Rfam assigns this 285-nucleotide part of an RNA from Allomyces macrogynus to the family "Eukaryotic large subunit ribosomal RNA". Gene Ontology terms of the family: structural constituent of ribosome and ribosome. Rfam's curators put it in the seed alignment. Rfam 15.1 lists 107,465 matches to the family in 2,616 species. NCBI's taxonomy places the organism under Eukaryota, Blastocladiomycota, Blastocladiales, Allomyces, Allomyces macrogynus.
[Rfam]
RNA sequence: GAGUGCAACAAAUUUGCAAGUCGUAGGGUGACAAACCUGAAGGCGCAAUGAAAGUGAAAAAAUACCACCCAGUAAAAUGGGACAGUAUUGCCCGGUCUUGCGGCUACCGCCAAAGGAUCUGAGGUAGAGCAAAUUUGCUGCGACCCGAAAGAUGGUGAACUAUGCCUGCAUAGGGCGAAGCCAGAGGAAACUCUGGGGGAGGCUCGUAGCGAUUCUGACGGGCAAAUCGAUCGUCAAAUGUGGGUAUAGGGGCGAAAAAUUAAUCGAACCAUCUAGUAGCUGGUU
Dot-bracket structure: ....(((.(((((((((..(((...((((.....))))...)))...((....)).....(((((..(((........)))...))))).((((((((...((......))...))).))).))....))))))))).)))..((.(...((((((...((((((((((((.((((....((((((....)))))).....))))...((((.((.((........))))))))..).))))))))))).((.......))......))))))......).))..